Annotation:
c-di-AMP riboswitch aptamer (ydaO/yuaA leader): a 161-nucleotide sequence from Streptomyces sp. 846.5. NCBI's taxonomy places the organism under Bacteria, Actinomycetota, Kitasatosporales, Streptomycetaceae, Streptomyces. A reference for the family is Barrick et al. (2004), "New RNA motifs suggest an expanded scope for riboswitches in bacterial genetic control", Proc Natl Acad Sci U S A.
RNA sequence: CGACACCAGCUACCGCACCACGGCAGGAGCGGGGGAACCAGGUAAGUCGCCACGUCGACCUUGGUCGUCGACGUGGCUAGGGGUGAAGUCGUGCUGCGCACGACCGGGCAACUCCAGCCCGAAUCCGACAGCUCACCUCGUAGGCGUGGGAGAGGAAACGC
Numbered sequence: 001c002g003a004c005a006c007c008a009g010c011u012a013c014c015g016c017a018c019c020a021c022g023g024c025a026g027g028a029g030c031g032g033g034g035g036a037a038c039c040a041g042g043u044a045a046g047u048c049g050c051c052a053c054g055u056c057g058a059c060c061u062u063g064g065u066c067g068u069c070g071a072c073g074u075g076g077c078u079a080g081g082g083g084u085g086a087a088g089u090c091g092u093g094c095u096g097c098g099c100a101c102g103a104c105c106g107g108g109c110a111a112c113u114c115c116a117g118c119c120c121g122a123a124u125c126c127g128a129c130a131g132c133u134c135a136c137c138u139c140g141u142a143g144g145c146g147u148g149g150g151a152g153a154g155g156a157a158a159c160g161c
Stems, first nucleotide, its partner, number of pairs: 001143001006027002029141006039080001081126003089103004106120004